Rfam assigns this 278-nucleotide RNA sequence from Colletotrichum lupini to the family "A. fumigatus sRNA Afu_309". It is annotated as a small RNA. The base pairs follow the family's consensus structure, which was predicted with WAR.

RNA sequence: CCUUCUUCAACAAACACGGGCCUGUGCCCAGAAUUCCUCUGCUCCUACGGGAGUCAGGGUCGAGUUCUGCGGCAGCUCGAUCAUCCAAGGAGCCAUCAAAUUUCAUGAUGUCAAUCUUCCGAUCGACAGGUUCAAGAGUGACCGGUCUUGAGGCAGCCAUGUUCGCCGUCAAAAGCUUGAGCGUGGUGUAAUCUUGUACUGGGGACGUCAUAUUCCUACCCCUUUUGCCGAGAUCGUCGAUCUAUGAGGUUAGGGAAAACCAUGACUUGCCCACAAAC
Numbered sequence: 001c002c003u004u005c006u007u008c009a010a011c012a013a014a015c016a017c018g019g020g021c022c023u024g025u026g027c028c029c030a031g032a033a034u035u036c037c038u039c040u041g042c043u044c045c046u047a048c049g050g051g052a053g054u055c056a057g058g059g060u061c062g063a064g065u066u067c068u069g070c071g072g073c074a075g076c077u078c079g080a081u082c083a084u085c086c087a088a089g090g091a092g093c094c095a096u097c098a099a100a101u102u103u104c105a106u107g108a109u110g111u112c113a114a115u116c117u118u119c120c121g122a123u124c125g126a127c128a129g130g131u132u133c134a135a136g137a138g139u140g141a142c143c144g145g146u147c148u149u150g151a152g153g154c155a156g157c158c159a160u161g162u163u164c165g166c167c168g169u170c171a172a173a174a175g176c177u178u179g180a181g182c183g184u185g186g187u188g189u190a191a192u193c194u195u196g197u198a199c200u201g202g203g204g205a206c207g208u209c210a211u212a213u214u215c216c217u218a219c220c221c222c223u224u225u226u227g228c229c230g231a232g233a234u235c236g237u238c239g240a241u242c243u244a245u246g247a248g249g250u251u252a253g254g255g256a257a258a259a260c261c262a263u264g265a266c267u268u269g270c271c272c273a274c275a276a277a278c
Base pairs, nucleotide, nucleotide: 018133019132020131021130022129023128024127025126026073027072028071029069030068031067033065034064035063036062037059038058039057040056041055042053043052044050045049081125083123084122085121089112090111092109094107145199146198151194153193157186158185159184160183161182162181163180164179165176166175204271206269207266208265209264210263211262220255221254222253224252227250228249229248232242233241234240235239